[Rfam]
RNA sequence: GUACCGGACACGGGGUGCCCCACCGGGGGCUGAGAUCACACCCGUCGAACCUGAACCAGUUCGUACUGGCGGAGGGAUGUCUUCCAUGCCAUUG
Numbered sequence: 001g002u003a004c005c006g007g008a009c010a011c012g013g014g015g016u017g018c019c020c021c022a023c024c025g026g027g028g029g030c031u032g033a034g035a036u037c038a039c040a041c042c043c044g045u046c047g048a049a050c051c052u053g054a055a056c057c058a059g060u061u062c063g064u065a066c067u068g069g070c071g072g073a074g075g076g077a078u079g080u081c082u083u084c085c086a087u088g089c090c091a092u093u094g
Stems, first nucleotide, its partner, number of pairs: 006082005011044004016038001017030005050075003056069004
A member of the RNA family "TPP riboswitch aptamer (THI element)" from Actinacidiphila glaucinigra, 94 nucleotides long. The base pairs follow the family's consensus structure, which is taken from published work. Rfam links the family to the GO term thiamine pyrophosphate binding. A search with the family's covariance model found it, with a score of 69 bits.